RNA: Small nucleolar RNA Z278
RNA sequence: CCCGAUGAUGAUAUAAUCCAUGUAAUAUGAGGUGGUAGUGGAUCCAAGUCCUUGUUAUUUGCAAGGUGAACCUCUUGGUGAAGCUACAUUACAAAUGAUCAUAUUGGAUUCUUCUGAGGC
Numbered sequence: 001c002c003c004g005a006u007g008a009u010g011a012u013a014u015a016a017u018c019c020a021u022g023u024a025a026u027a028u029g030a031g032g033u034g035g036u037a038g039u040g041g042a043u044c045c046a047a048g049u050c051c052u053u054g055u056u057a058u059u060u061g062c063a064a065g066g067u068g069a070a071c072c073u074c075u076u077g078g079u080g081a082a083g084c085u086a087c088a089u090u091a092c093a094a095a096u097g098a099u100c101a102u103a104u105u106g107g108a109u110u111c112u113u114c115u116g117a118g119g120c
Stems, first nucleotide, its partner, number of pairs: 002119002050066005